[Rfam]
RNA sequence: AGAGGCGGCCAGCUUUUGUGAUAUUUGCAAUUGUGAUUUGAAGCCAGUUGCAUAGUCACAAAAGUGAUCGUUUCC
Numbered sequence: 001a002g003a004g005g006c007g008g009c010c011a012g013c014u015u016u017u018g019u020g021a022u023a024u025u026u027g028c029a030a031u032u033g034u035g036a037u038u039u040g041a042a043g044c045c046a047g048u049u050g051c052a053u054a055g056u057c058a059c060a061a062a063a064g065u066g067a068u069c070g071u072u073u074c075c
Stems, first nucleotide, its partner, number of pairs: 002074006009066001012065011026052007